[Rfam]
Shown here is a 132-nucleotide sequence from Acanthochromis polyacanthus, a member of the family "Small nucleolar RNA SNORA44". Its Rfam clan is "SNORA44 clan". The source organism's lineage runs through Eukaryota, Teleostei, Osteoglossocephalai, Ovalentaria and Acanthochromis. Pairs were carried over by alignment from the consensus structure, which was predicted with PFOLD. A reference for the family is Huttenhofer et al. (2001), "RNomics: an experimental approach that identifies 201 candidates for novel, small, non-messenger RNAs in mouse", EMBO J. Rfam describes the family as follows. ACA44 is a member of the H/ACA class of snoRNA that guide the sites of modification of uridines to pseudouridines. The family's RNA type in Rfam is H/ACA-box small nucleolar RNA. The family has 27 seed sequences and 1,056 matches in Rfam 15.1.
RNA sequence: UGGCAUGCUAUCCUAAGUACCUGGGCUUGUUUGUAGCUCAUGGUUCUCCAAGUGCAUGCAAGAAAAUUGGGUGGUCUUUGACUGCUGUGGCCCCCUUUCUGCCAUCAGCAGCCACUCAGCUGUCCAACAGAC
Numbered sequence: 001u002g003g004c005a006u007g008c009u010a011u012c013c014u015a016a017g018u019a020c021c022u023g024g025g026c027u028u029g030u031u032u033g034u035a036g037c038u039c040a041u042g043g044u045u046c047u048c049c050a051a052g053u054g055c056a057u058g059c060a061a062g063a064a065a066a067u068u069g070g071g072u073g074g075u076c077u078u079u080g081a082c083u084g085c086u087g088u089g090g091c092c093c094c095c096u097u098u099c100u101g102c103c104a105u106c107a108g109c110a111g112c113c114a115c116u117c118a119g120c121u122g123u124c125c126a127a128c129a130g131a132c
Base pairs, nucleotide, nucleotide: 013042019038021036022035023034025032069125070124071123072122073121074120084112085111087105088104089103090102